Rfam assigns this 123-nucleotide sequence from Mentzelia albicaulis to the family "Plastid-psbA-1 3UTR RNA". The sequence is in the family's curated seed alignment. Plastid psbA-1 is a non-coding RNA (ncRNA) present in plastids. It was identified in inverted repeat sequences in the 3 prime untranslate region (3UTR) of photosystem II quinone-binding protein (psbA). The family's RNA type in Rfam is cis-regulatory element. Its Rfam clan is "Plastid-psbA 3UTR RNA clan". The source organism's lineage runs through Eukaryota, Tracheophyta, Euphyllophyta, eudicotyledons and Mentzelia.
RNA sequence: UUGAAGCUCCAUCCACAAAUGGAUAAGACUUUGGUCUUAGUGUAUACGAGGUCGUGAAAGUAAAAAUAAAGGAGCAAUAACCAAUUUCUUGUUCUAUCAAGAGGGCGGUAUUGCUCCUUUAUU
Numbered sequence: 001u002u003g004a005a006g007c008u009c010c011a012u013c014c015a016c017a018a019a020u021g022g023a024u025a026a027g028a029c030u031u032u033g034g035u036c037u038u039a040g041u042g043u044a045u046a047c048g049a050g051g052u053c054g055u056g057a058a059a060g061u062a063a064a065a066a067u068a069a070a071g072g073a074g075c076a077a078u079a080a081c082c083a084a085u086u087u088c089u090u091g092u093u094c095u096a097u098c099a100a101g102a103g104g105g106c107g108g109u110a111u112u113g114c115u116c117c118u119u120u121a122u123u
Stems, first nucleotide, its partner, number of pairs: 008023005068120012086103005